[Rfam]
RNA sequence: GGAUCGGUCUUGCGCAAUGAAUGCCCGCGAACCAUGUCAGGCGGGGAACCGAGCAGCAUUAAGCGGGACCAGUCAUGUGCCGCAAGGGCGCCGGUCACGC
Numbered sequence: 001g002g003a004u005c006g007g008u009c010u011u012g013c014g015c016a017a018u019g020a021a022u023g024c025c026c027g028c029g030a031a032c033c034a035u036g037u038c039a040g041g042c043g044g045g046g047a048a049c050c051g052a053g054c055a056g057c058a059u060u061a062a063g064c065g066g067g068a069c070c071a072g073u074c075a076u077g078u079g080c081c082g083c084a085a086g087g088g089c090g091c092c093g094g095u096c097a098c099g100c
Base pairs, nucleotide, nucleotide: 004094005093006092007091008090009086010085011084012083013082014081015077017076018075019074020073022071024067025066026065027064028063034059035058036057037056042051043050044049

Description
This 100-nucleotide RNA from Firmicutes bacterium CAG:129 belongs to the Rfam family "Bacterial small signal recognition particle RNA". It scores 71 bits against the family's covariance model. Its family is annotated with SRP-dependent cotranslational protein targeting to membrane, signal sequence recognition and signal recognition particle, plasma membrane targeting in the Gene Ontology. The family's consensus secondary structure is taken from published work. On this family, see Rosenblad et al., Nucleic Acids Res 2003: "SRPDB: Signal Recognition Particle Database". Lineage of the source: Bacteria > Bacillati > Bacillota.